[Rfam]
RNA sequence: GGCCUCUCUCUGUGGGGUGAUCGAUCAUGUGGCCCCCAGAUUGAUCGCCCCACAGAGGGAGGCC
Numbered sequence: 001g002g003c004c005u006c007u008c009u010c011u012g013u014g015g016g017g018u019g020a021u022c023g024a025u026c027a028u029g030u031g032g033c034c035c036c037c038a039g040a041u042u043g044a045u046c047g048c049c050c051c052a053c054a055g056a057g058g059g060a061g062g063c064c
Base pairs, nucleotide, nucleotide: 001064002063003062004061005060006059007058008057009056010055011054012053013052014051015050016049017048018047019046020045021044022043023042024041025040026039029036
RNA: mir-9242 microRNA precursor family
Organism: Myotis brandtii